The family of this 110-nucleotide RNA from Thalassotalea piscium is "Alpha operon ribosome binding site".
Rfam classes the family as a cis-regulatory element.
Rfam's curators write: The bacterial alpha operon ribosome binding site is surrounded by this complex pseudoknotted structure. Translation of the mRNA produces 4 ribosomal protein products, one of which (S4) acts as a translational repressor by binding to the nested pseudoknot region. The mechanism of repression is thought to involve a conformational switch in the pseudoknot region and ribosome entrapment.
The organism belongs to Thalassotalea, within Bacteria.
The literature on the family includes a 2001 paper in J Biol Chem by Schlax et al., "Translational repression of the Escherichia coli alpha operon mRNA: importance of an mRNA conformational switch and a ternary entrapment complex".
Pairs were carried over by alignment from the consensus structure, which is taken from published work.
The match comes from Rfam's covariance-model search (81 bits).
[Rfam]
RNA sequence: CAAAAAGAAGACGGGUUGAGUAUCCUAACGGGCUUUUCAACCUGAUGUAAUUUUAAUCUAGAAUAGGAGAUGUGUUAGUGGCCCGUAUCGCUGGCAUUAACAUCCCUGAU
Dot-bracket structure: ....((((..(((..........[[...[[[[....{{{......)))..))))...........................]]]].......]]............}}}.